[Rfam]
RNA sequence: UUCCACAGCUACUGGUCUGCAGCUGUUCUUAAUGGUAGCAGUUGUGGCAUUCCUCUGUGGAAAACAAAACAAAACAAAACUGUUACCCAAUUAAAUGCCUUUUUCUUAGCUAAAUGGGAAGGUGGCAUAUGCAUGACAGACAUAA
Numbered sequence: 001u002u003c004c005a006c007a008g009c010u011a012c013u014g015g016u017c018u019g020c021a022g023c024u025g026u027u028c029u030u031a032a033u034g035g036u037a038g039c040a041g042u043u044g045u046g047g048c049a050u051u052c053c054u055c056u057g058u059g060g061a062a063a064a065c066a067a068a069a070c071a072a073a074a075c076a077a078a079a080c081u082g083u084u085a086c087c088c089a090a091u092u093a094a095a096u097g098c099c100u101u102u103u104u105c106u107u108a109g110c111u112a113a114a115u116g117g118g119a120a121g122g123u124g125g126c127a128u129a130u131g132c133a134u135g136a137c138a139g140a141c142a143u144a145a
Stems, first nucleotide, its partner, number of pairs: 003060004017047009085134001088131002098125002101121006
Small nucleolar RNA SNORA41: a 145-nucleotide sequence from Castor canadensis. Pairs were carried over by alignment from the consensus structure, which was predicted with PFOLD. Lineage of the source: Eukaryota > Eumetazoa > Bilateria > Chordata > Castor. A reference for the family is Huttenhofer et al. (2001), "RNomics: an experimental approach that identifies 201 candidates for novel, small, non-messenger RNAs in mouse", EMBO J. Rfam describes the family as follows. ACA41 is a member of the H/ACA class of snoRNA that guide the sites of modification of uridines to pseudouridines.